[Rfam]
Notes: A member of the RNA family "Small nucleolar RNA SNORA23" from Poecilia formosa, 181 nucleotides long. It is annotated as an H/ACA-box small nucleolar RNA. The members of this family belong to the H/ACA class of snoRNAs which are thought to guide the sites of modification of uridines to pseudouridines. This family includes human snoRNA ACA23 (SNORA23) and mouse snoMBI-1. The family has 9 seed sequences and 1,092 matches in Rfam 15.1. A search with the family's covariance model found it, with a score of 100 bits.

RNA sequence: GGUGAAUGGUGUGCACGGUGUAGGUCUGUGUCAUGUGUUGUGGCCAGGCUGCGUUUUGCAGUCCUGGCCACAGCGCUCACGCCGCACCUGCAGCCAUAGAGCAAUCGGGGAUCAUAGUACUGGUCUUUGAGGUCUUCUCAGACGUCUCAUCAUCGACCAGCCUCCAAAGUCUCCAACAAAA
Numbered sequence: 001g002g003u004g005a006a007u008g009g010u011g012u013g014c015a016c017g018g019u020g021u022a023g024g025u026c027u028g029u030g031u032c033a034u035g036u037g038u039u040g041u042g043g044c045c046a047g048g049c050u051g052c053g054u055u056u057u058g059c060a061g062u063c064c065u066g067g068c069c070a071c072a073g074c075g076c077u078c079a080c081g082c083c084g085c086a087c088c089u090g091c092a093g094c095c096a097u098a099g100a101g102c103a104a105u106c107g108g109g110g111a112u113c114a115u116a117g118u119a120c121u122g123g124u125c126u127u128u129g130a131g132g133u134c135u136u137c138u139c140a141g142a143c144g145u146c147u148c149a150u151c152a153u154c155g156a157c158c159a160g161c162c163u164c165c166a167a168a169g170u171c172u173c174c175a176a177c178a179a180a181a
Stems, first nucleotide, its partner, number of pairs: 013091003029081003035077001036075006043068005050060003107174005120160006129146002132143003